A member of the RNA family "Group II catalytic intron D1-D4-6" from Allomesorhizobium alhagi, 221 nucleotides long. Rfam links the family to the GO term Group II intron splicing. The family has 174 seed sequences and 1,617 matches in Rfam 15.1. Pairs were carried over by alignment from the consensus structure. Rfam's curators write: Group II introns are found in rRNA, tRNA and mRNA of organelles in fungi, plants and protists, and also in mRNA in bacteria.
RNA sequence: GAAGUCCGUUACGAUGAAGGAAUAGCGAGCCACAUCGGCCCCGAGCCGUGCGCAGGCAUCCGUGAGGAGGUCGGCGAAGCGUCGGCAGGGGAGUGCAUAGGCCAGCCAUUGAGCCGCGAAAGAGGGUUUUUCCGGGCGCCGACGCCGUCAACUGGGCGGAAGGCGAAAUGGGCAGGCGCGCAAGCGCGAGUGUCUGUCCGGCCCGGCGUGGUCGGAGACCC
Dot-bracket structure: ...........(((((..((..[.[[...)).))))).((((..(((((((((.(((.(((....))).))).)))...)).)))).))))..................((.((((((.............(((((((((..((((........))))...)))....(((((((((((......]].])))))))))))))))))))))))).)......
Numbered sequence: 001g002a003a004g005u006c007c008g009u010u011a012c013g014a015u016g017a018a019g020g021a022a023u024a025g026c027g028a029g030c031c032a033c034a035u036c037g038g039c040c041c042c043g044a045g046c047c048g049u050g051c052g053c054a055g056g057c058a059u060c061c062g063u064g065a066g067g068a069g070g071u072c073g074g075c076g077a078a079g080c081g082u083c084g085g086c087a088g089g090g091g092a093g094u095g096c097a098u099a100g101g102c103c104a105g106c107c108a109u110u111g112a113g114c115c116g117c118g119a120a121a122g123a124g125g126g127u128u129u130u131u132c133c134g135g136g137c138g139c140c141g142a143c144g145c146c147g148u149c150a151a152c153u154g155g156g157c158g159g160a161a162g163g164c165g166a167a168a169u170g171g172g173c174a175g176g177c178g179c180g181c182a183a184g185c186g187c188g189a190g191u192g193u194c195u196g197u198c199c200g201g202c203c204c205g206g207c208g209u210g211g212u213c214g215g216a217g218a219c220c221c
Stems, first nucleotide, its partner, number of pairs: 012037005019031002023189001025187002039091004045086004049081002051076003055072003059068003110215001111213001113212006132206006138164003143158004169200011

Background:
On this family, see Bonen and Vogel, Trends Genet 2001: "The ins and outs of group II introns".